[Rfam]
A member of the RNA family "MarS sRNA" from Streptococcus henryi, 153 nucleotides long. Its family is annotated with mRNA 5'-UTR binding and positive regulation of translation, ncRNA-mediated in the Gene Ontology. A search with the family's covariance model found it, with a score of 107 bits. NCBI's taxonomy places the organism under Bacteria, Bacillati, Bacillota, Bacilli, Streptococcus. For this family Rfam cites "The Regulatory Small RNA MarS Supports Virulence of Streptococcus pyogenes" (Pappesch et al., Sci Rep, 2017). Interacts with the 5'UTR of the mga transcript (the multiple virulence gene regulator gene) and was renamed MarS for mag-activating regulatory sRNA. In MarS deletion strains expression of mga and several Mga-activated genes is reduced. This down-regulation of virulence factors leads to increased susceptibility of the deletion strain to phagocytosis, reduced adherence to human keratinocytes. However, the lack of MarS increased bacterial dissemination and tolerance towards oxidative stress. The family's consensus secondary structure is taken from published work.
RNA sequence: AUGCGAUGAGCCGAAUUUGGUUUUUAACCAUAUUUGCGCAAGGGAAGUCUACAUUAAAUUGUAACGCAGGAGCGGACUUUGGUAACUUGUUGUGAACCCUGUCACCACAUGGAAACAUGCCCUCAAUCCUCUAUCUUCGGAUAGGGGAUUUUU
Numbered sequence: 001a002u003g004c005g006a007u008g009a010g011c012c013g014a015a016u017u018u019g020g021u022u023u024u025u026a027a028c029c030a031u032a033u034u035u036g037c038g039c040a041a042g043g044g045a046a047g048u049c050u051a052c053a054u055u056a057a058a059u060u061g062u063a064a065c066g067c068a069g070g071a072g073c074g075g076a077c078u079u080u081g082g083u084a085a086c087u088u089g090u091u092g093u094g095a096a097c098c099c100u101g102u103c104a105c106c107a108c109a110u111g112g113a114a115a116c117a118u119g120c121c122c123u124c125a126a127u128c129c130u131c132u133a134u135c136u137u138c139g140g141a142u143a144g145g146g147g148a149u150u151u152u153u
Stems, first nucleotide, its partner, number of pairs: 012036005018030005041123004045079004065074003080107004085102002108119004127148009